Rfam assigns this 193-nucleotide RNA sequence from Pseudomonas sp. StFLB209 to the family "RgsA sRNA". This small RNA (sRNA) was computationally identified in the genome of the opportunistic pathogen Pseudomonas aeruginosa and its expression verified by northern blot analysis. P16 sRNA appears to be conserved across several Pseudomonas species and Azotobacter vinelandii. In these species it is consistently located downstream of a predicted TatD deoxyribonuclease gene. P16 has a predicted Rho independent terminator at the 3' end but the function of P16 is unknown. Gene Ontology terms of the family: sRNA-mediated gene silencing, response to hydrogen peroxide and response to oxidative stress. Pairs were carried over by alignment from the consensus structure, which was predicted with RNAalifold. A search with the family's covariance model found it, with a score of 182 bits. The family's RNA type in Rfam is small RNA.

[Rfam]
RNA sequence: CAAUAACGGUUUUAGUAUUCCAAAACUGUUUAAAAAAUGACCAAUGGCGACUGGCAGGCCAGGUAUUCUCAUCAAUACUUAAAGCGUUGGUACGCAUUCCCCCCAAAUGCCGCACCAAUAAAGGCAUUCAUGGAUGGCAUGCCUUUGUUUUACUCCUAAUGGUCUUGACCCGGUUUCACCCCCCAGAAUCCGG
Numbered sequence: 001c002a003a004u005a006a007c008g009g010u011u012u013u014a015g016u017a018u019u020c021c022a023a024a025a026c027u028g029u030u031u032a033a034a035a036a037a038u039g040a041c042c043a044a045u046g047g048c049g050a051c052u053g054g055c056a057g058g059c060c061a062g063g064u065a066u067u068c069u070c071a072u073c074a075a076u077a078c079u080u081a082a083a084g085c086g087u088u089g090g091u092a093c094g095c096a097u098u099c100c101c102c103c104c105a106a107a108u109g110c111c112g113c114a115c116c117a118a119u120a121a122a123g124g125c126a127u128u129c130a131u132g133g134a135u136g137g138c139a140u141g142c143c144u145u146u147g148u149u150u151u152a153c154u155c156c157u158a159a160u161g162g163u164c165u166u167g168a169c170c171c172g173g174u175u176u177c178a179c180c181c182c183c184c185a186g187a188a189u190c191c192g193g
Stems, first nucleotide, its partner, number of pairs: 039164005086119004091114001094111001095109003120146008128137001170193004175188003